[Rfam]
RNA sequence: UAGACAACCUCAAAUGGAGCCACUCAUGAUUCCCAUGUUCAUAAGUGCUUCUCUUUGGGGUUGUCUUG
Numbered sequence: 001u002a003g004a005c006a007a008c009c010u011c012a013a014a015u016g017g018a019g020c021c022a023c024u025c026a027u028g029a030u031u032c033c034c035a036u037g038u039u040c041a042u043a044a045g046u047g048c049u050u051c052u053c054u055u056u057g058g059g060g061u062u063g064u065c066u067u068g
Base pairs, nucleotide, nucleotide: 004064005063006062007061008060009059010058011057014055016052017051018050019049021047022046023045024044026042027041028040